[Rfam]
RNA sequence: UCGGUUCCGGUUCACGCUUCGCGCCAAAUCCACGCGGGCGACCCGGCGACC
Numbered sequence: 001u002c003g004g005u006u007c008c009g010g011u012u013c014a015c016g017c018u019u020c021g022c023g024c025c026a027a028a029u030c031c032a033c034g035c036g037g038g039c040g041a042c043c044c045g046g047c048g049a050c051c
Stems, first nucleotide, its partner, number of pairs: 003051003007046004015040004020036004
RNA: L31-Actinobacteria ribosomal protein leader
Organism: Nocardia asiatica